[Rfam]
RNA sequence: GGGGUGAGUCGCGACUGGCGUGCUCGGGUGGAAUCAACCACCGGGAAGCGACCGAUCGGCGAGGCACCGUGCGCCUGGGUGCCGCCG
Numbered sequence: 001g002g003g004g005u006g007a008g009u010c011g012c013g014a015c016u017g018g019c020g021u022g023c024u025c026g027g028g029u030g031g032a033a034u035c036a037a038c039c040a041c042c043g044g045g046a047a048g049c050g051a052c053c054g055a056u057c058g059g060c061g062a063g064g065c066a067c068c069g070u071g072c073g074c075c076u077g078g079g080u081g082c083c084g085c086c087g
Stems, first nucleotide, its partner, number of pairs: 003057003008052005015045002017075005028041004064082005
Shown here is an 87-nucleotide RNA from Pseudofrankia inefficax, a member of the family "ZMP/ZTP riboswitch aptamer (pfl RNA motif)".
It scores 55 bits against the family's covariance model.
Rfam links the family to the GO terms regulation of purine nucleotide biosynthetic process and one-carbon metabolic process.
The organism belongs to Pseudofrankia, within Bacteria.